[Rfam]
RNA sequence: CUUCAAGAGAUGCGAUGCCAAGCUCCGACUGGUCGCACACCAACCCCAUGCUUCACGGGUGGUUCGGAUGAGGAAGUGACCGGUGGAAAAGUUCCACGGUAAGAGCACGCA
Numbered sequence: 001c002u003u004c005a006a007g008a009g010a011u012g013c014g015a016u017g018c019c020a021a022g023c024u025c026c027g028a029c030u031g032g033u034c035g036c037a038c039a040c041c042a043a044c045c046c047c048a049u050g051c052u053u054c055a056c057g058g059g060u061g062g063u064u065c066g067g068a069u070g071a072g073g074a075a076g077u078g079a080c081c082g083g084u085g086g087a088a089a090a091g092u093u094c095c096a097c098g099g100u101a102a103g104a105g106c107a108c109g110c111a
Base pairs, nucleotide, nucleotide: 001076002075003074004073009038011037012036013035014034015033016032021030022029039063040062041061044059045058046057049055079100080099081098082097084096085095086094087093088092
The record is a 111-nucleotide sequence from Arthrobacter psychrolactophilus, which matches "SAM (S-adenosyl methionine) riboswitch aptamer" in Rfam.
A search with the family's covariance model found it, with a score of 65 bits.
For this family Rfam cites "The aptamer core of SAM-IV riboswitches mimics the ligand-binding site of SAM-I riboswitches" (Weinberg et al., RNA, 2008).
The source organism's lineage runs through Bacteria, Actinomycetota, Micrococcales, Micrococcaceae and Arthrobacter.